[Rfam]
RNA sequence: GAAGUUUUCCUCGGCAGUUAACUGUAGCCGGUUUCAUAAUUCGGCAGUUAACUGUCGAGGGACAU
Dot-bracket structure: .......((.(((((((((((((((..................))))))))))))))).))....
RNA: MIR2629 microRNA precursor family